Overview
The family of this 97-nucleotide RNA from Cuscuta europaea is "Small nucleolar RNA Z221/R21b". A search with the family's covariance model found it, with a score of 61 bits. On this family, see Chen et al., Nucleic Acids Res 2003: "The high diversity of snoRNAs in plants: identification and comparative study of 120 snoRNA genes from Oryza sativa". Its family is annotated with RNA processing and nucleolus in the Gene Ontology. Taxonomically the source falls in Cuscuta subgen. Cuscuta (Eukaryota, Mesangiospermae, asterids, lamiids).
Nucleotides: 097
Stems, first nucleotide, its partner, number of pairs: 001097004
Number, partner (000 for none) and nucleotide at each position: 001097g002096g003095g004094c005000g006000a007000u008000g009000a010000u011000g012000a013000a014000a015000u016000a017000u018000c019000g020000a021000g022000a023000u024000u025000g026000u027000c028000a029000u030000g031000c032000a033000c034000c035000a036000c037000u038000c039000u040000g041000a042000c043000c044000u045000c046000c047000u048000u049000g050000a051000g052000a053000g054000a055000g056000a057000g058000u059000g060000a061000u062000g063000a064000u065000a066000u067000u068000u069000u070000u071000c072000u073000c074000a075000u076000a077000c078000c079000c080000a081000u082000a083000c084000u085000g086000u087000u088000a089000u090000c091000u092000g093000a094004g095003c096002u097001c